[Rfam]
RNA sequence: CUGUUCCCCCCUGGAGAGAGGCCGCACCCGAUGCGGCCCACCGAAGGAGCAAGCGCGGCAUCGCCCGGGCGAAUCUCUCAGGUAGAGCGGACAGUGGGGCAGCA
Numbered sequence: 001c002u003g004u005u006c007c008c009c010c011c012u013g014g015a016g017a018g019a020g021g022c023c024g025c026a027c028c029c030g031a032u033g034c035g036g037c038c039c040a041c042c043g044a045a046g047g048a049g050c051a052a053g054c055g056c057g058g059c060a061u062c063g064c065c066c067g068g069g070c071g072a073a074u075c076u077c078u079c080a081g082g083u084a085g086a087g088c089g090g091a092c093a094g095u096g097g098g099g100c101a102g103c104a
Stems, first nucleotide, its partner, number of pairs: 006099004011094003020038007040083003043079002047077003053070002